[Rfam]
RNA sequence: AAUUAGAAAGGGCAAACUCAUUGAAAAAUGAGGACGCAAAGUCACAGGUCUAAGGCAUGUAGCUAGGAUGGCUGGUCUGCCUCU
Numbered sequence: 001a002a003u004u005a006g007a008a009a010g011g012g013c014a015a016a017c018u019c020a021u022u023g024a025a026a027a028a029u030g031a032g033g034a035c036g037c038a039a040a041g042u043c044a045c046a047g048g049u050c051u052a053a054g055g056c057a058u059g060u061a062g063c064u065a066g067g068a069u070g071g072c073u074g075g076u077c078u079g080c081c082u083c084u
Stems, first nucleotide, its partner, number of pairs: 012037002017032006040078002043075001045074003048069003055063002
c-di-GMP-I riboswitch aptamer: an 84-nucleotide sequence from Bacillus coahuilensis. Rfam describes the family as follows. GEMM was predicted in a large-scale screen for bacterial structured RNA regulatory elements. Genes associated with GEMM are involved in a diverse array of functions, including chemotaxis regulation, signal transduction, secretion and chitin.